[Rfam]
RNA sequence: CUCCUCGAAAUAGCUUUAGGGCUAGCCUCGGAUGUUUACCUGCGGAGGUAGAGCACUGGAUGAUUGCGGGGGCUUCACCGCCUACCAACAUCAACCAAACUCCGAAUGCCGUAUGGUCUAGAAUCCGGGAGUCAGAACAUGUGGGCUAAGCCGUGUGUUCGAAAGGGAAACAGCCCAGACCGUCCGCUAAGGUCCCCAAAUUUAUGCUAAGUGGCAAAGGAUGUGCGUUUGCUCAGACAACCAGGAUGUUGGCUUAGAAGCAGCCAUUCAUUUAAAGAGUGCGUAAUAGCUCACUGGUCGAGUGAACAUGCGCCGACAAUAUACGGGGCUAAGCAUAGUACCGAAGCGACGGACUAGUUUUACUAGUGGUAGAGGAGCUUUCCGUCUGGAGUGAAGCUGUGGGGUAACCCAUGGUGGACCGGCCGGAAGUGAGAAU
Numbered sequence: 001c002u003c004c005u006c007g008a009a010a011u012a013g014c015u016u017u018a019g020g021g022c023u024a025g026c027c028u029c030g031g032a033u034g035u036u037u038a039c040c041u042g043c044g045g046a047g048g049u050a051g052a053g054c055a056c057u058g059g060a061u062g063a064u065u066g067c068g069g070g071g072g073c074u075u076c077a078c079c080g081c082c083u084a085c086c087a088a089c090a091u092c093a094a095c096c097a098a099a100c101u102c103c104g105a106a107u108g109c110c111g112u113a114u115g116g117u118c119u120a121g122a123a124u125c126c127g128g129g130a131g132u133c134a135g136a137a138c139a140u141g142u143g144g145g146c147u148a149a150g151c152c153g154u155g156u157g158u159u160c161g162a163a164a165g166g167g168a169a170a171c172a173g174c175c176c177a178g179a180c181c182g183u184c185c186g187c188u189a190a191g192g193u194c195c196c197c198a199a200a201u202u203u204a205u206g207c208u209a210a211g212u213g214g215c216a217a218a219g220g221a222u223g224u225g226c227g228u229u230u231g232c233u234c235a236g237a238c239a240a241c242c243a244g245g246a247u248g249u250u251g252g253c254u255u256a257g258a259a260g261c262a263g264c265c266a267u268u269c270a271u272u273u274a275a276a277g278a279g280u281g282c283g284u285a286a287u288a289g290c291u292c293a294c295u296g297g298u299c300g301a302g303u304g305a306a307c308a309u310g311c312g313c314c315g316a317c318a319a320u321a322u323a324c325g326g327g328g329c330u331a332a333g334c335a336u337a338g339u340a341c342c343g344a345a346g347c348g349a350c351g352g353a354c355u356a357g358u359u360u361u362a363c364u365a366g367u368g369g370u371a372g373a374g375g376a377g378c379u380u381u382c383c384g385u386c387u388g389g390a391g392u393g394a395a396g397c398u399g400u401g402g403g404g405u406a407a408c409c410c411a412u413g414g415u416g417g418a419c420c421g422g423c424c425g426g427a428a429g430u431g432a433g434a435a436u
Base pairs, nucleotide, nucleotide: 001377002376003375004374005373006372011024012023013022014021015020026131027129028128029127030126031125032124033123036122038117039116040115041113042112043111044110045109051103052101053100057097058096059095061093062092063091064090068086069085070083071082072081073080135160136159137158138157139156140155141154142153143152144151165176166175167174180352181351182350183349185348186347187346191342192341193340200339202338203337204336205335206334207333219314220313223311224310225309227307228306229305230304231303232302240298241297242296243295244294246271247270248269251265252264253263272276277292281290282289353367354366355365356364357363378431380428381427382426383425384424386422387421388420389419396415397414398413399412400411401410402409403408
Notes: The family of this 436-nucleotide part of an RNA from Fannyhessea vaginae is "Bacterial large subunit ribosomal RNA". The base pairs follow the family's consensus structure, which is taken from published work. It scores 2891 bits against the family's covariance model. Its family is annotated with ribosome and structural constituent of ribosome in the Gene Ontology.